[Rfam]
RNA sequence: UCAGAGGGCGGGACGAUCGCUGGUUGCCGGUGGGCCUAGCUCACUGGGCUGGAGGAAAGUCCGGGCUCCGUAGGACAGGAUGGUCGAUAACGUCGACCGACCGUGAGGUUAGGGCCAGUGCAACAGAAAGCAAACCGCCGAACGAUCCAUCUCGAUGGAUGCGUGGUAAGGGUGAAACGGUGCGGUAAGAGCGCACCAGCGUUUGAGGUGACUCAAGCGGCUGGGUAAACCCCAUCCGGAGCUAGACCAAACAGGGUGCAACGCGCAAGCGUACGAGGCGGUCCGUUUCGUUAUCGACACUCGGGUAGGUCGCGAUGGAGGCGACGAGCAAUCGUCGCGCACAGAUAAAUGAUCGUCGGCCGGACUUUUCAGUCCGGUCACAGAACCCGGCUUACAAGCCCUCUGAUGUC
Number, nucleotide and partner (000 for none) at each position: 001u406002c405003a404004g403005a402006g401007g400008g399009c398010g000011g395012g357013a356014c355015g354016a353017u352018c351019g000020c052021u051022g050023g049024u048025u047026g000027c000028c000029g000030g000031u000032g000033g000034g000035c000036c000037u000038a000039g000040c000041u000042c000043a000044c000045u000046g000047g025048g024049c023050u022051g021052g020053a000054g000055g000056a000057a393058a392059g391060u000061c390062c389063g388064g387065g386066c241067u240068c239069c238070g000071u000072a000073g289074g288075a287076c000077a000078g237079g236080a235081u234082g233083g097084u096085c095086g094087a093088u000089a000090a000091c000092g000093u087094c086095g085096a084097c083098c112099g110100a109101c108102c107103g000104u000105g000106a000107g102108g101109u100110u099111a000112g098113g232114g231115c000116c000117a000118g230119u229120g226121c225122a000123a000124c000125a000126g000127a000128a000129a000130g000131c000132a000133a000134a000135c171136c170137g167138c166139c165140g000141a000142a000143c161144g160145a000146u000147c000148c000149a000150u000151c000152u000153c000154g000155a000156u000157g000158g000159a000160u144161g143162c000163g000164u000165g139166g138167u137168a000169a000170g136171g135172g000173u000174g000175a000176a000177a000178c000179g197180g196181u195182g194183c193184g192185g000186u000187a000188a000189g000190a000191g000192c184193g183194c182195a181196c180197c179198a000199g221200c219201g218202u217203u216204u215205g214206a213207g212208g000209u000210g000211a000212c207213u206214c205215a204216a203217g202218c201219g200220g000221c199222u000223g000224g000225g121226u120227a000228a000229a119230c118231c114232c113233c082234a081235u080236c079237c078238g069239g068240a067241g066242c000243u000244a000245g311246a310247c309248c308249a000250a000251a000252c000253a000254g302255g301256g300257u299258g298259c000260a000261a000262c000263g000264c000265g000266c000267a000268a000269g000270c000271g000272u000273a000274c000275g000276a000277g000278g000279c000280g295281g294282u293283c000284c000285g000286u000287u075288u074289c073290g000291u000292u000293a282294u281295c280296g000297a000298c258299a257300c256301u255302c254303g000304g000305g000306u000307a000308g248309g247310u246311c245312g000313c000314g000315a000316u000317g000318g000319a000320g340321g338322c337323g336324a335325c334326g333327a332328g000329c000330a000331a000332u327333c326334g325335u324336c323337g322338c321339g000340c320341a000342c000343a000344g000345a000346u000347a000348a000349a000350u000351g018352a017353u016354c015355g014356u013357c012358g000359g000360c000361c000362g000363g000364a000365c000366u000367u000368u000369u000370c000371a000372g000373u000374c000375c000376g000377g000378u000379c000380a000381c000382a000383g000384a000385a000386c065387c064388c063389g062390g061391c059392u058393u057394a000395c011396a000397a000398g009399c008400c007401c006402u005403c004404u003405g002406a001407u000408g000409u000410c000

The family of this 410-nucleotide RNA from Stieleria varia is "Bacterial RNase P class A". The family's RNA type in Rfam is ribozyme. About the family: Ribonuclease P (RNase P) is a ubiquitous endoribonuclease, found in archaea, bacteria and eukarya as well as chloroplasts and mitochondria. Pairs were carried over by alignment from the consensus structure, which is taken from published work. The match comes from Rfam's covariance-model search (270 bits).